[Rfam]
RNA sequence: AACAUUUUAUGAUGAUCAACAAGGGACUUAAUACUGAUGUGUGAUGUCACCUGUUUUUAUUCUGAAUUUGU
Numbered sequence: 001a002a003c004a005u006u007u008u009a010u011g012a013u014g015a016u017c018a019a020c021a022a023g024g025g026a027c028u029u030a031a032u033a034c035u036g037a038u039g040u041g042u043g044a045u046g047u048c049a050c051c052u053g054u055u056u057u058u059a060u061u062c063u064g065a066a067u068u069u070g071u
Stems, first nucleotide, its partner, number of pairs: 002071003006066001